RNA sequence: AGAUGAGGUAGAGGUUGCGGUUGUUAGUAGUAGCUCUGUGGAGGCGGGAAGCGCCGAGGAUGCAGAGGGAAAGGAACCACCGCCGAAGUCUGCGGGCAUCUUCCGGCACGCGGGCUGGGGCUGUUGCCGAAAGGCGCAGCACUGUCAUACGGGUUUACCCGUUCCCGUAUGGUGCGCUAUCUUUUAU
Numbered sequence: 001a002g003a004u005g006a007g008g009u010a011g012a013g014g015u016u017g018c019g020g021u022u023g024u025u026a027g028u029a030g031u032a033g034c035u036c037u038g039u040g041g042a043g044g045c046g047g048g049a050a051g052c053g054c055c056g057a058g059g060a061u062g063c064a065g066a067g068g069g070a071a072a073g074g075a076a077c078c079a080c081c082g083c084c085g086a087a088g089u090c091u092g093c094g095g096g097c098a099u100c101u102u103c104c105g106g107c108a109c110g111c112g113g114g115c116u117g118g119g120g121c122u123g124u125u126g127c128c129g130a131a132a133g134g135c136g137c138a139g140c141a142c143u144g145u146c147a148u149a150c151g152g153g154u155u156u157a158c159c160c161g162u163u164c165c166c167g168u169a170u171g172g173u174g175c176g177c178u179a180u181c182u183u184u185u186a187u
Stems, first nucleotide, its partner, number of pairs: 006182006017083005023077003034067007087116008096107002117143002120140004125136004145172009
A member of the RNA family "Lysine riboswitch aptamer" from Paenibacillus popilliae, 187 nucleotides long. Rfam's curators write: Riboswitches are metabolite binding domains within certain messenger RNAs that serve as precision sensors for their corresponding targets. For this family Rfam cites "An mRNA structure in bacteria that controls gene expression by binding lysine" (Sudarsan et al., Genes Dev, 2003). NCBI's taxonomy places the organism under Bacteria, Bacillati, Bacillota, Caryophanales, Paenibacillus popilliae. The match comes from Rfam's covariance-model search (119 bits).